[Rfam]
RNA sequence: AGUGAAUCACGGGGGUGCUUUUAUAAAAGCUGAGAGAAGUUCGUUCAAAACUUCAACCCUUGGAACCUGAUCCGGUUCGUACCGGCGUAGGAAACGUGAUUGGCGCUUUGGC
Number, nucleotide and partner (000 for none) at each position: 001a000002g000003u000004g000005a000006a100007u099008c098009a097010c096011g060012g059013g058014g057015g000016u000017g030018c029019u028020u027021u026022u000023a000024u000025a000026a021027a020028a019029g018030c017031u000032g000033a000034g000035a000036g000037a053038a052039g051040u050041u049042c000043g000044u000045u000046c000047a000048a000049a041050a040051c039052u038053u037054c000055a000056a000057c014058c013059c012060u011061u000062g000063g000064a000065a000066c091067c090068u089069g088070a000071u000072c085073c084074g083075g082076u000077u000078c000079g000080u000081a000082c075083c074084g073085g072086c000087g000088u069089a068090g067091g066092a000093a000094a000095c000096g010097u009098g008099a007100u006101u000102g000103g000104c000105g000106c000107u000108u000109u000110g000111g000112c000

Shown here is a 112-nucleotide RNA sequence from Desulfobacter latus, a member of the family "TPP riboswitch aptamer (THI element)". It scores 73 bits against the family's covariance model. Rfam's curators write: Vitamin B(1) in its active form thiamin pyrophosphate (TPP) is an essential coenzyme that is synthesised by coupling of pyrimidine and thiazole moieties in bacteria.